[Rfam]
RNA sequence: AGUGUCAACGGUACCGGACCGAACCCGAAAGGGGCGGGAGGAUAAGGAGUGGACACGUGCAUCGGAU
Numbered sequence: 001a002g003u004g005u006c007a008a009c010g011g012u013a014c015c016g017g018a019c020c021g022a023a024c025c026c027g028a029a030a031g032g033g034g035c036g037g038g039a040g041g042a043u044a045a046g047g048a049g050u051g052g053a054c055a056c057g058u059g060c061a062u063c064g065g066a067u
Base pairs, nucleotide, nucleotide: 001058002056003055004054005053006052008050009049
A member of the RNA family "Bacillus-plasmid RNA" from Bacillus thuringiensis, 67 nucleotides long. It is one of the family's seed sequences. The family's RNA type in Rfam is small RNA.